[Rfam]
About this RNA: This 124-nucleotide sequence from Paenibacillus xylanivorans belongs to the Rfam family "Glycine riboswitch aptamer". The base pairs follow the family's consensus structure. The match comes from Rfam's covariance-model search (65 bits). Lineage of the source: Bacteria > Bacillati > Caryophanales > Paenibacillaceae > Paenibacillus. Rfam's curators write: This family represents the bacterial glycine riboswitch.

Nucleotides: 124
Base pairs, nucleotide, nucleotide: 006119007118008117009116010115011114012113013112020057021056022055023054059104060103061102062100063099066098067097068096072091073090
Number, partner (000 for none) and nucleotide at each position: 001000a002000u003000g004000a005000a006119u007118g008117u009116a010115a011114a012113g013112g014000g015000a016000g017000a018000g019000a020057u021056u022055a023054c024000c025000c026000u027000u028000g029000g030000c031000a032000c033000c034000c035000g036000a037000a038000u039000c040000a041000g042000g043000g044000u045000g046000u047000a048000c049000a050000u051000g052000c053000g054023g055022u056021a057020a058000c059104g060103c061102c062100g063099a064000a065000g066098g067097a068096g069000u070000a071000a072091a073090c074000c075000a076000c077000c078000g079000a080000c081000a082000a083000g084000c085000g086000g087000g088000a089000g090073g091072u092000g093000a094000a095000u096068c097067u098066c099063u100062c101000a102061g103060g104059c105000a106000a107000a108000a109000g110000g111000a112013c113012u114011u115010u116009u117008a118007c119006g120000g121000g122000a123000c124000g